[Rfam]
RNA sequence: GCGUUCUUGUCGGGGUGCCUUGCUGUGAGGCUGAGAUCGGUUAAACCGGAUCCCGUUGAACCUGAUCAGGUUAGCGCCUGCGUAGGGAACAAGAUUUCUCGUCUC
Number, nucleotide and partner (000 for none) at each position: 001g000002c000003g000004u000005u000006c093007u092008u091009g090010u089011c055012g054013g053014g052015g000016u049017g031018c030019c029020u028021u027022g000023c000024u000025g000026u000027g021028a020029g019030g018031c017032u000033g000034a000035g000036a000037u000038c048039g047040g046041u045042u000043a000044a000045a041046c040047c039048g038049g016050a000051u000052c014053c013054c012055g011056u000057u000058g000059a000060a000061c086062c085063u084064g083065a000066u000067c080068a079069g078070g077071u000072u000073a000074g000075c000076g000077c070078c069079u068080g067081c000082g000083u064084a063085g062086g061087g000088a000089a010090c009091a008092a007093g006094a000095u000096u000097u000098c000099u000100c000101g000102u000103c000104u000105c000
RNA: TPP riboswitch aptamer (THI element)
Organism: Pseudomonas savastanoi